[Rfam]
RNA sequence: AGCAGGGAAGCCGAAAACUGCAUCAAAGAGUAGGCA
Numbered sequence: 001a002g003c004a005g006g007g008a009a010g011c012c013g014a015a016a017a018c019u020g021c022a023u024c025a026a027a028g029a030g031u032a033g034g035c036a
Stems, first nucleotide, its partner, number of pairs: 002021004010035003